[Rfam]
RNA sequence: CCCAGGGCUGCGCGGUGCUUGCCCUGGGCUAUUUCAUGUUGCCCCCUUGGGGCU
Numbered sequence: 001c002c003c004a005g006g007g008c009u010g011c012g013c014g015g016u017g018c019u020u021g022c023c024c025u026g027g028g029c030u031a032u033u034u035c036a037u038g039u040u041g042c043c044c045c046c047u048u049g050g051g052g053c054u
Stems, first nucleotide, its partner, number of pairs: 001028008041053005
RNA: Acido-Lenti-1 RNA
Organism: Verrucomicrobiales bacterium VVV1